The record is a 176-nucleotide RNA from Streptomyces sp. CNQ-509, which matches "Streptomyces sRNA scr5239" in Rfam. The match comes from Rfam's covariance-model search (72 bits). NCBI's taxonomy places the organism under Bacteria, Bacillati, Kitasatosporales, Streptomycetaceae, Streptomyces.

[Rfam]
RNA sequence: CUUCCGCCCCUUCCGCACGACGGGGCGGAACGAGGCCCGAGGCGUUCUCUGCCCUGACUGCGUCCCGGCCUCCUCACCGGCUGCGACGCCGCGGGGCCGCACACUUCGCGGCGCGCGCACCGGUGCUUGGCUCCGGGCCGUGGUGCCGGACGGGUUGAGGGUCCCGGUCCAGGCAC
Dot-bracket structure: ..((((.(((.(.......).))).))))..((((.(.(.((.((((........))..)).)).).)))))....((((.......................................))))....(.(((.((...)).))))..(((((((........)))).)))......